A member of the RNA family "Antizyme RNA frameshifting stimulation element" from Triplophysa tibetana, 56 nucleotides long. The organism belongs to Triplophysa, within Eukaryota. It scores 68 bits against the family's covariance model. The family's RNA type in Rfam is frameshift element. The base pairs follow the family's consensus structure, which is taken from published work. Gene Ontology term of the family: translational frameshifting. The literature on the family includes a 2004 paper in J Mol Biol by Ivanov et al., "Identification of a new antizyme mRNA +1 frameshifting stimulatory pseudoknot in a subset of diverse invertebrates and its apparent absence in intermediate species". Rfam describes the family as follows. This family represents a structural element which is found in antizyme mRNA and is known to promote frameshifting. Antizyme genes have have two partially overlapping open reading frames, the second, which encodes the functional protein requires +1 translational frameshifting. This frameshift is stimulated by a pseudoknot present 3' of the frameshift site in the antizyme mRNA. The frameshifting efficiency is dependent on the level of polyamines in the cell, when the polyamine concentration is high frameshifting is more likely to occur which leads to an increase in the quantity of functional antizyme produced. The functional antizyme acts to reduce ornithine decarboxylase (ODC) activity which leads to a drop in polyamines present in the cell.
RNA sequence: UGAUGCCCCUCUCCCACUGACGAAGAUCCCGGGUGGGCGAGGGACAAGCAGGGAUC
Numbered sequence: 001u002g003a004u005g006c007c008c009c010u011c012u013c014c015c016a017c018u019g020a021c022g023a024a025g026a027u028c029c030c031g032g033g034u035g036g037g038c039g040a041g042g043g044a045c046a047a048g049c050a051g052g053g054a055u056c
Stems, first nucleotide, its partner, number of pairs: 007043005013037006025056006